[Rfam]
RNA: MIR403 microRNA precursor family
Organism: Castanea mollissima
RNA sequence: UCAUAUUUCAGGUUUGUGUGUGAAUCUAAUAUCCACAUCCAAUGACAAAAGCACCAAAACCCUUCUUUCUCAUUGGAUGCUGUUAGAUUCACGCACAAACACGUAAUCUGUCU
Number, nucleotide and partner (000 for none) at each position: 001u000002c110003a109004u000005a107006u106007u105008u000009c000010a000011g000012g100013u099014u098015u097016g096017u095018g094019u093020g092021u091022g090023a089024a088025u087026c086027u000028a084029a083030u082031a000032u000033c079034c000035a000036c000037a000038u000039c000040c000041a000042a000043u000044g000045a068046c000047a000048a000049a000050a000051g000052c000053a000054c000055c000056a000057a000058a000059a000060c000061c000062c000063u000064u000065c000066u000067u000068u045069c000070u000071c000072a000073u000074u000075g000076g000077a000078u000079g033080c000081u000082g030083u029084u028085a000086g026087a025088u024089u023090c022091a021092c020093g019094c018095a017096c016097a015098a014099a013100c012101a000102c000103g000104u000105a007106a006107u005108c000109u003110g002111u000112c000113u000